[Rfam]
RNA: Group II catalytic intron D1-D4-7
RNA sequence: CCUGUCAUUCAGCUGACAAGCCCACCGACACAUGCGAGAGGAGUAAUUCUCUGGUGUGGAGCUGUCGGAAAAGUACCCGCGGGAAAUCUCAUAGGCCAAACCGUGAGGUGAAGCCGACACUGCCAGCAACAAGGCCCUAAGGGGC
Numbered sequence: 001c002c003u004g005u006c007a008u009u010c011a012g013c014u015g016a017c018a019a020g021c022c023c024a025c026c027g028a029c030a031c032a033u034g035c036g037a038g039a040g041g042a043g044u045a046a047u048u049c050u051c052u053g054g055u056g057u058g059g060a061g062c063u064g065u066c067g068g069a070a071a072a073g074u075a076c077c078c079g080c081g082g083g084a085a086a087u088c089u090c091a092u093a094g095g096c097c098a099a100a101c102c103g104u105g106a107g108g109u110g111a112a113g114c115c116g117a118c119a120c121u122g123c124c125a126g127c128a129a130c131a132a133g134g135c136c137c138u139a140a141g142g143g144g145c
Stems, first nucleotide, its partner, number of pairs: 003018005026067005031058005037052006079092001081090003094115003101108002119138001122135003